RNA sequence: GUAUCAUGAUCUUUAUUGACCGUUCAUAUAAACCAUACAAUAGCAUUGCAGCUUGUGUGGGGUUCAUAUAAUGGUCAACAGAGACUCUUGACAU
Numbered sequence: 001g002u003a004u005c006a007u008g009a010u011c012u013u014u015a016u017u018g019a020c021c022g023u024u025c026a027u028a029u030a031a032a033c034c035a036u037a038c039a040a041u042a043g044c045a046u047u048g049c050a051g052c053u054u055g056u057g058u059g060g061g062g063u064u065c066a067u068a069u070a071a072u073g074g075u076c077a078a079c080a081g082a083g084a085c086u087c088u089u090g091a092c093a094u
Base pairs, nucleotide, nucleotide: 001094002093004091005090006089008086010084011083013081014080016078017077018076019075020074021073022072023071024070026069027068028067029066031064032063033062034061036059037058038057039056042053043052
The family of this 94-nucleotide RNA sequence from Medicago truncatula is "MIR2587 microRNA precursor family". The family's consensus secondary structure was predicted with RNAalifold. It scores 77 bits against the family's covariance model. Rfam 15.1 lists 242 matches to the family in 3 species.